The family of this 126-nucleotide RNA from Metabacillus sediminilitoris is "PyrR binding site". By type it is a cis-regulatory element. The literature on the family includes a 2001 paper in Nucleic Acids Res by Bonner et al., "Molecular recognition of pyr mRNA by the Bacillus subtilis attenuation regulatory protein PyrR". This family represents the PyrR binding site and terminator structure. This RNA structure is found upstream of a variety of genes involved in pyrimidine biosynthesis and transport. The alignment also includes a portion of the antiterminator structure. It scores 57 bits against the family's covariance model. Rfam 15.1 lists 1,498 matches to the family in 930 species. Lineage of the source: Bacteria > Bacillati > Caryophanales > Bacillaceae > Metabacillus.
RNA sequence: GGAACCUUUAACACAGUCCCGAGAGGCUGAGAAGGAGAACGGAUAAAAUAGCAAAGCUCUAUUUAUGACUUUGUUGAACUAUGUCUUCGUCAACCCUCUCACAUCUGAUGAGAGGGUUUUUUGUUA
Numbered sequence: 001g002g003a004a005c006c007u008u009u010a011a012c013a014c015a016g017u018c019c020c021g022a023g024a025g026g027c028u029g030a031g032a033a034g035g036a037g038a039a040c041g042g043a044u045a046a047a048a049u050a051g052c053a054a055a056g057c058u059c060u061a062u063u064u065a066u067g068a069c070u071u072u073g074u075u076g077a078a079c080u081a082u083g084u085c086u087u088c089g090u091c092a093a094c095c096c097u098c099u100c101a102c103a104u105c106u107g108a109u110g111a112g113a114g115g116g117u118u119u120u121u122u123g124u125u126a
Base pairs, nucleotide, nucleotide: 005035006034007033008032009031014029015028016027017026018025049076050075051074052073053072054071055070056069058067060065089121092118093117094116095115096114097113098112099111100110101109